Source information:
A member of the RNA family "Ribosomal protein L13 leader" from Secundilactobacillus similis, 57 nucleotides long. By type it is a cis-regulatory leader. The family's consensus secondary structure was predicted with CMfinder. This family is a putative r-protein leader autoregulatory structure found in B. subtilis and other low-GC Gram-positive bacteria. It is located in the 5' untranslated regions of mRNAs encoding the L13-S9 (rplM-rpsI) ribosomal protein operon.
RNA sequence: GGUAUUGUUUACCCCACGAAUAAGCCCCGGAAACUUGUUAUUGGUUGUAAACAAACA
Numbered sequence: 001g002g003u004a005u006u007g008u009u010u011a012c013c014c015c016a017c018g019a020a021u022a023a024g025c026c027c028c029g030g031a032a033a034c035u036u037g038u039u040a041u042u043g044g045u046u047g048u049a050a051a052c053a054a055a056c057a
Stems, first nucleotide, its partner, number of pairs: 006053007016042001019039006